[Rfam]
Rfam assigns this 81-nucleotide RNA from Bos taurus to the family "mir-187 microRNA precursor family". On this family, see Lim et al., Science 2003: "Vertebrate microRNA genes". Rfam 15.1 lists 636 matches to the family in 622 species. Gene Ontology terms of the family: RISC complex and miRNA-mediated post-transcriptional gene silencing. The source organism's lineage runs through Eukaryota, Sarcopterygii, Mammalia, Bovidae and Bos.

RNA sequence: GGUGUGAGACCUCGGGCUACAACACGGGACCCGGGCGCUGCUCCGACCCCUCGUGUCUUGUGUUGCAGCCGGAGGGACGCA
Number, nucleotide and partner (000 for none) at each position: 001g000002g000003u000004g000005u000006g000007a000008g000009a000010c000011c074012u073013c000014g000015g070016g069017c068018u067019a000020c065021a064022a063023c062024a061025c060026g059027g058028g057029a056030c055031c000032c053033g052034g051035g050036c000037g000038c000039u000040g000041c000042u000043c000044c000045g000046a000047c000048c000049c000050c035051u034052c033053g032054u000055g030056u029057c028058u027059u026060g025061u024062g023063u022064u021065g020066c000067a018068g017069c016070c015071g000072g000073a012074g011075g000076g000077a000078c000079g000080c000081a000